A member of the RNA family "mir-248 microRNA precursor family" from Caenorhabditis remanei, 92 nucleotides long. Rfam's curators put it in the seed alignment. Taxonomically the source falls in Caenorhabditis (Eukaryota, Opisthokonta, Nematoda, Rhabditoidea). For this family Rfam cites "Repertoire and evolution of miRNA genes in four divergent nematode species" (de Wit et al., Genome Res, 2009). The base pairs follow the family's consensus structure, which was predicted with RNAalifold.
RNA sequence: GGCAGAGAUUACGAUUAGCGAUAUCCAGCCGUUGUAUUCAAUAGCGCAUUUGAGUACACGUGCACGGAUACGCUCAUCGUUUUUGUAUUGCC
Numbered sequence: 001g002g003c004a005g006a007g008a009u010u011a012c013g014a015u016u017a018g019c020g021a022u023a024u025c026c027a028g029c030c031g032u033u034g035u036a037u038u039c040a041a042u043a044g045c046g047c048a049u050u051u052g053a054g055u056a057c058a059c060g061u062g063c064a065c066g067g068a069u070a071c072g073c074u075c076a077u078c079g080u081u082u083u084u085g086u087a088u089u090g091c092c
Stems, first nucleotide, its partner, number of pairs: 001092005011080005017074004022070005028063002030060002033058009